[Rfam]
RNA sequence: ACGACCCUCGCGGGAGAGUGCAGGAUGCCAAUUGGUAGUCCUGACGCCGAAGGAGCAACCGCCCCGGAAACUCUCAGGCAGCCGGACCGCGAGACGAGG
Numbered sequence: 001a002c003g004a005c006c007c008u009c010g011c012g013g014g015a016g017a018g019u020g021c022a023g024g025a026u027g028c029c030a031a032u033u034g035g036u037a038g039u040c041c042u043g044a045c046g047c048c049g050a051a052g053g054a055g056c057a058a059c060c061g062c063c064c065c066g067g068a069a070a071c072u073c074u075c076a077g078g079c080a081g082c083c084g085g086a087c088c089g090c091g092a093g094a095c096g097a098g099g
Stems, first nucleotide, its partner, number of pairs: 007093007021043006046079003049075002053073003059067002
RNA: Glycine riboswitch aptamer
Organism: Parvibaculaceae bacterium